RNA sequence: AUUGCACACAAAACCCAAAAGUCAUUAUGUUUAACUUUGUUAAUGCCUUUUUUAUAUAGUGUGCAAAAAUGAACAGCACCUUGUCGCCUUUUGAAACCACUUGUGUUUCACAAAGUGAAAUUGAAGGUACUACAUGG
Numbered sequence: 001a002u003u004g005c006a007c008a009c010a011a012a013a014c015c016c017a018a019a020a021g022u023c024a025u026u027a028u029g030u031u032u033a034a035c036u037u038u039g040u041u042a043a044u045g046c047c048u049u050u051u052u053u054a055u056a057u058a059g060u061g062u063g064c065a066a067a068a069a070u071g072a073a074c075a076g077c078a079c080c081u082u083g084u085c086g087c088c089u090u091u092u093g094a095a096a097c098c099a100c101u102u103g104u105g106u107u108u109c110a111c112a113a114a115g116u117g118a119a120a121u122u123g124a125a126g127g128u129a130c131u132a133c134a135u136g137g
Stems, first nucleotide, its partner, number of pairs: 002066008017051005023045004076130001078128005088115004092110006
RNA: Small nucleolar RNA SNORA68
Organism: Chiloscyllium punctatum